[Rfam]
RNA: Selenocysteine insertion sequence 1
Organism: Oryzias melastigma
RNA sequence: GUGUCAUAAUGACAACCUGACUCUAAACUCAGCUGUGAGAGGAGCGGGUUCGAUGCCCCGACAC
Number, nucleotide and partner (000 for none) at each position: 001g064002u063003g062004u061005c060006a000007u000008a000009a000010u000011g000012a000013c000014a050015a049016c048017c047018u046019g045020a000021c000022u042023c041024u000025a000026a000027a000028c000029u038030c037031a036032g000033c000034u000035g000036u031037g030038a029039g000040a000041g023042g022043a000044g000045c019046g018047g017048g016049u015050u014051c000052g000053a000054u000055g000056c000057c000058c000059c000060g005061a004062c003063a002064c001